The family of this 103-nucleotide RNA sequence from Shouchella oshimensis is "Purine riboswitch aptamer". Rfam links the family to the GO term purine nucleobase biosynthetic process. NCBI's taxonomy places the organism under Bacteria, Bacillati, Bacilli, Shouchella, Shouchella oshimensis. It scores 78 bits against the family's covariance model.

Nucleotides: 103
Base pairs, nucleotide, nucleotide: 018089019088020087021086022085023084024083025082029049031047032046033045034044058079059078060077061076062075063074064073
Number, partner (000 for none) and nucleotide at each position: 001000a002000u003000a004000c005000g006000a007000a008000u009000a010000u011000u012000a013000u014000a015000g016000c017000u018089u019088a020087c021086u022085c023084g024083u025082a026000u027000a028000a029049u030000a031047g032046c033045g034044g035000u036000a037000a038000u039000a040000a041000g042000g043000u044034c045033c046032g047031c048000g049029a050000g051000u052000c053000u054000c055000u056000a057000c058079c059078a060077g061076a062075c063074u064073g065000c066000c067000a068000u069000u070000u071000a072000a073064c074063g075062g076061u077060c078059u079058g080000a081000c082025u083024a084023c085022g086021a087020g088019u089018g090000a091000u092000c093000c094000a095000u096000u097000u098000u099000u100000g101000c102000g103000c